[Rfam]
RNA sequence: CACGCUGUACGGCACGUGUGCCCAGCAGUGUCUUCCUGAUGAUGUAUUCAAAAAGCAGCACUGCAGUGUUUCAGCUGCUGACAUCAUGGUUUUAAUGUGGACAUGCUGAUUGAACUUGGUGUUUCUGUUGAAACAAGU
Numbered sequence: 001c002a003c004g005c006u007g008u009a010c011g012g013c014a015c016g017u018g019u020g021c022c023c024a025g026c027a028g029u030g031u032c033u034u035c036c037u038g039a040u041g042a043u044g045u046a047u048u049c050a051a052a053a054a055g056c057a058g059c060a061c062u063g064c065a066g067u068g069u070u071u072c073a074g075c076u077g078c079u080g081a082c083a084u085c086a087u088g089g090u091u092u093u094a095a096u097g098u099g100g101a102c103a104u105g106c107u108g109a110u111u112g113a114a115c116u117u118g119g120u121g122u123u124u125c126u127g128u129u130g131a132a133a134c135a136a137g138u
Stems, first nucleotide, its partner, number of pairs: 004059004017052001018047004024040001026038003064127003068123001070121001071119004080107001082105003
The family of this 138-nucleotide RNA sequence from Asarcornis scutulata is "Small nucleolar RNA SNORA8".
NCBI's taxonomy places the organism under Eukaryota, Bilateria, Sauropsida, Anatidae, Asarcornis.
Rfam 15.1 lists 1,490 matches to the family in 610 species.
ACA8 is a member of the H/ACA class of snoRNA that guide the sites of modification of uridines to pseudouridines.